[Rfam]
RNA: 6S / SsrS RNA
RNA sequence: AAAUGCCUACGAUGUACGUAGCUUGUGUAUGUCUUAAACCAAUGAGAGUAAUACGGAAGUUCAAUAUUUAAAUGUAGCCAUCAUGCCAUCUUUUUAAGAAGGAAGAUGAAAGCAUUUUUGAGAGCAUCCACCUGCGAGAGCGGGUUUAUGGACAUCUAGAAGAGAACGGCAUAUGUGGGACUAUA
Numbered sequence: 001a002a003a004u005g006c007c008u009a010c011g012a013u014g015u016a017c018g019u020a021g022c023u024u025g026u027g028u029a030u031g032u033c034u035u036a037a038a039c040c041a042a043u044g045a046g047a048g049u050a051a052u053a054c055g056g057a058a059g060u061u062c063a064a065u066a067u068u069u070a071a072a073u074g075u076a077g078c079c080a081u082c083a084u085g086c087c088a089u090c091u092u093u094u095u096a097a098g099a100a101g102g103a104a105g106a107u108g109a110a111a112g113c114a115u116u117u118u119u120g121a122g123a124g125c126a127u128c129c130a131c132c133u134g135c136g137a138g139a140g141c142g143g144g145u146u147u148a149u150g151g152a153c154a155u156c157u158a159g160a161a162g163a164g165a166a167c168g169g170c171a172u173a174u175g176u177g178g179g180a181c182u183a184u185a
Stems, first nucleotide, its partner, number of pairs: 003182001006179006012172004017168003031153004035148006055129003059125004066119001070117006081106002086102002089099002